[Rfam]
RNA sequence: UAAUUGCUGUGAGGACUCCUUUUAUGAUGGUAUCUGAAGGGGAAGUGCACCUCAUCUGAUUAUACCAAAACUGAAUAUGGUUUCUGAGCAAAUU
Numbered sequence: 001u002a003a004u005u006g007c008u009g010u011g012a013g014g015a016c017u018c019c020u021u022u023u024a025u026g027a028u029g030g031u032a033u034c035u036g037a038a039g040g041g042g043a044a045g046u047g048c049a050c051c052u053c054a055u056c057u058g059a060u061u062a063u064a065c066c067a068a069a070a071c072u073g074a075a076u077a078u079g080g081u082u083u084c085u086g087a088g089c090a091a092a093u094u
Base pairs, nucleotide, nucleotide: 002093004091005090006089007088038055039053040052041051042050
RNA: Small nucleolar RNA Z118/Z121/Z120